The family of this 203-nucleotide sequence from Tauraco erythrolophus is "Small nucleolar RNA SNORA74". A reference for the family is Ganot et al. (1997), "The family of box ACA small nucleolar RNAs is defined by an evolutionarily conserved secondary structure and ubiquitous sequence elements essential for RNA accumulation", Genes Dev. Rfam links the family to the GO terms nucleolus and RNA processing. From the family's description: U19 belongs to the H/ACA class of snoRNAs. snoRNAs bind a number of proteins (including dyskerin, Gar1p and Nop10p in the case of the H/ACA class) to form snoRNP complexes. This class are thought to guide the sites of modification of uridines to pseudouridines by forming direct base pairing interactions with substrate RNAs. Targets may include ribosomal and spliceosomal RNAs but the exact functions of many snoRNAs, including U19, are not confirmed. Co-precipitation of U19 snoRNA with RNase MRP RNA suggests that U19 may be involved in pre-rRNA processing. NCBI's taxonomy places the organism under Eukaryota, Opisthokonta, Dinosauria, Musophagidae, Tauraco.

RNA sequence: CCCAGCGGUAGUCAGCUGCCCAUGGCUGCUCAGGGCCUGUGCUAGUGUUAUGCUGCUGGGAAAGAAAAGUGCUGCCGCUCGCUCCUGGCACCGCCGGCGCUGUUCUAGUGCCAGUCGCUGCCAGGUUUUGGCAGCACUCUGCAUGCUUGAGAGUGGAGUAACUCCUGCUCGGUGGAGUUAAUCCUAGAUUGGAUGCAGACAAC
Numbered sequence: 001c002c003c004a005g006c007g008g009u010a011g012u013c014a015g016c017u018g019c020c021c022a023u024g025g026c027u028g029c030u031c032a033g034g035g036c037c038u039g040u041g042c043u044a045g046u047g048u049u050a051u052g053c054u055g056c057u058g059g060g061a062a063a064g065a066a067a068a069g070u071g072c073u074g075c076c077g078c079u080c081g082c083u084c085c086u087g088g089c090a091c092c093g094c095c096g097g098c099g100c101u102g103u104u105c106u107a108g109u110g111c112c113a114g115u116c117g118c119u120g121c122c123a124g125g126u127u128u129u130g131g132c133a134g135c136a137c138u139c140u141g142c143a144u145g146c147u148u149g150a151g152a153g154u155g156g157a158g159u160a161a162c163u164c165c166u167g168c169u170c171g172g173u174g175g176a177g178u179u180a181a182u183c184c185u186a187g188a189u190u191g192g193a194u195g196c197a198g199a200c201a202a203c
Stems, first nucleotide, its partner, number of pairs: 001060009011051002015046004020041001021039002024037003069137009085125002088121003092117002094114001096111001098110004139198006146191001155184003159180007